[Rfam]
Burkholderiales-2 RNA: a 71-nucleotide RNA from Diaphorobacter sp. HDW4B. Taxonomically the source falls in Diaphorobacter (Bacteria, Pseudomonadati, Burkholderiales, Comamonadaceae). A search with the family's covariance model found it, with a score of 84 bits. The base pairs follow the family's consensus structure, which is taken from published work. By type it is a cis-regulatory element.
RNA sequence: GCAGAGCUGCAGCCAUGCCUGCAGAUGCUUGGCCGGACGAACACUCCACGGGCGGAGUGAGCAACAUCGGC
Numbered sequence: 001g002c003a004g005a006g007c008u009g010c011a012g013c014c015a016u017g018c019c020u021g022c023a024g025a026u027g028c029u030u031g032g033c034c035g036g037a038c039g040a041a042c043a044c045u046c047c048a049c050g051g052g053c054g055g056a057g058u059g060a061g062c063a064a065c066a067u068c069g070g071c
Base pairs, nucleotide, nucleotide: 001028002027003026008023009022010021011020012019032071033070034069035068036067042059043058044057045056046055047054